This 139-nucleotide sequence from Thalictrum thalictroides belongs to the Rfam family "Small nucleolar RNA snoR77". The family's RNA type in Rfam is H/ACA-box small nucleolar RNA. Taxonomically the source falls in Thalictrum (Eukaryota, Viridiplantae, Embryophyta, Thalictroideae). Rfam links the family to the GO terms RNA processing and nucleolus.
[Rfam]
RNA sequence: AGGCAACCUCCUUGCCAAUGAUUAAAUGGCUUGCGUGGUGUUAUUCUUCUCAUAGAUCAAUUUUUUUGCUCUUCAGACUUGCCUAGAUUAGGUGUUAUAAUCUAAUCUUUGAAGCUGGUCUAGUAAGCUCAAGCACAUU
Dot-bracket structure: .((((.(((.(..((((.........))))..).).))))))....................(((..(((....(((((.((...((((((((......))))))))......)).)))))....)))..)))......